Glycine riboswitch aptamer: a 93-nucleotide sequence from Acetobacter nitrogenifigens. The pairing is the family consensus, mapped onto this sequence.
[Rfam]
RNA sequence: CGGCGUCAUAGAGGGAGAGUUCGGGCUGCAAGGCCCGACGCCGAAGGAGCAACCGCCCCGGAAUCUCUCAGGCUAACGGACCCUAUGACACUG
Numbered sequence: 001c002g003g004c005g006u007c008a009u010a011g012a013g014g015g016a017g018a019g020u021u022c023g024g025g026c027u028g029c030a031a032g033g034c035c036c037g038a039c040g041c042c043g044a045a046g047g048a049g050c051a052a053c054c055g056c057c058c059c060g061g062a063a064u065c066u067c068u069c070a071g072g073c074u075a076a077c078g079g080a081c082c083c084u085a086u087g088a089c090a091c092u093g
Stems, first nucleotide, its partner, number of pairs: 006088006013082002021038004040073003043069002047067003053061002
Lineage of the source: Bacteria > Pseudomonadati > Alphaproteobacteria > Acetobacter > Acetobacter nitrogenifigens.